[Rfam]
Record summary
A member of the RNA family "Potassium channel RNA editing signal" from Sinocyclocheilus grahami, 114 nucleotides long.

RNA sequence: GUAGGUUAUGGAGAUAUCUAUCCCCAAACCCUUCUAGGAAAAAUAGUGGGGGGUCUCUGUUGCAUCGCUGGUGUGUUAGUGAUCGCUCUGCCCAUUCCCAUUAUUGUGAACAAC
Numbered sequence: 001g002u003a004g005g006u007u008a009u010g011g012a013g014a015u016a017u018c019u020a021u022c023c024c025c026a027a028a029c030c031c032u033u034c035u036a037g038g039a040a041a042a043a044u045a046g047u048g049g050g051g052g053g054u055c056u057c058u059g060u061u062g063c064a065u066c067g068c069u070g071g072u073g074u075g076u077u078a079g080u081g082a083u084c085g086c087u088c089u090g091c092c093c094a095u096u097c098c099c100a101u102u103a104u105u106g107u108g109a110a111c112a113a114c
Base pairs, nucleotide, nucleotide: 001114002113004111007108008107009106010105011104013102014101015100020095021094037077038076040074049063051061
Dot-bracket structure: ((.(..(((((.(((....((...............((.(........(.(.........).)..........).))................))....))).)))))..).))

It is annotated as a cis-regulatory element. The family's consensus secondary structure is taken from published work. This family represents a group of sequences related to the human potassium channel Kv1.1 hairpin element which directs the efficient modification of an adenosine to inosine by an adenosine deaminase acting on RNA (ADAR). The ADAR modification causes an isoleucine/valine recoding event which lies in the ion-conducting pore of the potassium channel.